[Rfam]
RNA sequence: AAAAAAAAUGGGCGAAACGCCCAUCUUCUCACUUAGCCAGGUGGUCGCACCUGGGACGCAAAUAAAAGCCGCACGCCCAGCGACUCCGAGAUUGUAGCCUUUU
Numbered sequence: 001a002a003a004a005a006a007a008a009u010g011g012g013c014g015a016a017a018c019g020c021c022c023a024u025c026u027u028c029u030c031a032c033u034u035a036g037c038c039a040g041g042u043g044g045u046c047g048c049a050c051c052u053g054g055g056a057c058g059c060a061a062a063u064a065a066a067a068g069c070c071g072c073a074c075g076c077c078c079a080g081c082g083a084c085u086c087c088g089a090g091a092u093u094g095u096a097g098c099c100u101u102u103u
Base pairs, nucleotide, nucleotide: 008024009023010022011021012020013019014018042094043093044092045091046090048088053086054085055084057082058081059080